[Rfam]
RNA sequence: CUGCAACACGCCGAGCUCCAUCCGGUAGGCGAGGGAUUCCGACCCACGGAUGGAGGCGGGGGACCCACCAGGUCCACCGAGACCAGACGGGGCCCGAACGGGCUCCUUGGGGUGAAGCCGGCGUCAACGUCGACACCGGCCGGGUGACCUCUCAAACCCGAACCCGACAGCUGACCUCGUAGGCGUGUACACGAGAGGAAUC
Numbered sequence: 001c002u003g004c005a006a007c008a009c010g011c012c013g014a015g016c017u018c019c020a021u022c023c024g025g026u027a028g029g030c031g032a033g034g035g036a037u038u039c040c041g042a043c044c045c046a047c048g049g050a051u052g053g054a055g056g057c058g059g060g061g062g063a064c065c066c067a068c069c070a071g072g073u074c075c076a077c078c079g080a081g082a083c084c085a086g087a088c089g090g091g092g093c094c095c096g097a098a099c100g101g102g103c104u105c106c107u108u109g110g111g112g113u114g115a116a117g118c119c120g121g122c123g124u125c126a127a128c129g130u131c132g133a134c135a136c137c138g139g140c141c142g143g144g145u146g147a148c149c150u151c152u153c154a155a156a157c158c159c160g161a162a163c164c165c166g167a168c169a170g171c172u173g174a175c176c177u178c179g180u181a182g183g184c185g186u187g188u189a190c191a192c193g194a195g196a197g198g199a200a201u202c
Base pairs, nucleotide, nucleotide: 009185010184011183012182016055017054018053019052020051021050022049023048024047056180057179058178059177060176061175066109067108110165111164112163118139119138120137121136142159143158144157145156
A member of the RNA family "c-di-AMP riboswitch aptamer (ydaO/yuaA leader)", 202 nucleotides long. It scores 68 bits against the family's covariance model.